[Rfam]
RNA sequence: GCCGAAGUGGCGAAAUCGGUAGACGCAGUUGAUUCAAAAUUAACCGUAGAAAUACGUACCGGUUCGAAUCCGGUCUUCGGCA
Numbered sequence: 001g002c003c004g005a006a007g008u009g010g011c012g013a014a015a016u017c018g019g020u021a022g023a024c025g026c027a028g029u030u031g032a033u034u035c036a037a038a039a040u041u042a043a044c045c046g047u048a049g050a051a052a053u054a055c056g057u058a059c060c061g062g063u064u065c066g067a068a069u070c071c072g073g074u075c076u077u078c079g080g081c082a
Stems, first nucleotide, its partner, number of pairs: 001081007010026003028044005058074005
RNA: tRNA
Organism: Pantoea sp. Mhis